[Rfam]
This 262-nucleotide part of an RNA from Salinigranum rubrum belongs to the Rfam family "Archaeal large subunit ribosomal RNA". The base pairs follow the family's consensus structure, which is taken from published work. The source organism's lineage runs through Archaea, Methanobacteriati, Halobacteria, Halobacteriales and Salinigranum.
RNA sequence: GAGUGUGCCUGUCUGGCAAGUCUAACACGAGCAUCGUGGAAGGCGUAGGGAAACCGAUACGGCCGCAGUCUUCGGACCAGGGCCACCGUGUUCAAGCGCGGGGAGUCAGACGGGCACGACCCGAAACCGAGUGAUCUACGCGAGGGCAGGGUGAAGCGUGGCGAAAGCCACGUGGAAGCCCGCUAGGGGUGGUGUCCUACAAUACCCUCCCGUGACCCGCGCGUAGGGGUGAAAGGCCCAUCGAACUCGGCAACAGCUGGUU
Dot-bracket structure: ....(((((((((((((..((((..((((.....))))..))))...((....)).....((((...(((....)))...))))..((((......))))....)))))))))))))..((.(...((((((...(((((((.((((.((((...(((((((....)))))))....))))....((((.((.((........))))))))..).))).))))))).(((.....)))......))))))......).))..